[Rfam]
RNA sequence: UAAAAAGACAUCUAGGGUUCCGGCUGCAUCGCAGUGACUGGUCCGAGAGUUGUCAACCUCUUAUGAGGUCACACGGCGGGACAAAAGCCCGGGAGAA
Numbered sequence: 001u002a003a004a005a006a007g008a009c010a011u012c013u014a015g016g017g018u019u020c021c022g023g024c025u026g027c028a029u030c031g032c033a034g035u036g037a038c039u040g041g042u043c044c045g046a047g048a049g050u051u052g053u054c055a056a057c058c059u060c061u062u063a064u065g066a067g068g069u070c071a072c073a074c075g076g077c078g079g080g081a082c083a084a085a086a087g088c089c090c091g092g093g094a095g096a097a
Stems, first nucleotide, its partner, number of pairs: 007054004012049001015044002020041002022038001023035005056069005072092001074095001078090003
RNA: Guanidine-I riboswitch aptamer
Organism: Vibrio palustris